[Rfam]
RNA sequence: UGCCCUGUCGUCUAAAGGUAAGACCACAGACUCUGACUCUGUUAAUCGAGGUUCGAAUCCUCGCGGGGCAU
Dot-bracket structure: (((((((..((((.......)))).(((((.......)))))....(((((.......)))))))))))).
This 71-nucleotide sequence from Glacieibacterium arshaanense belongs to the Rfam family "tRNA".
It is annotated as a transfer RNA.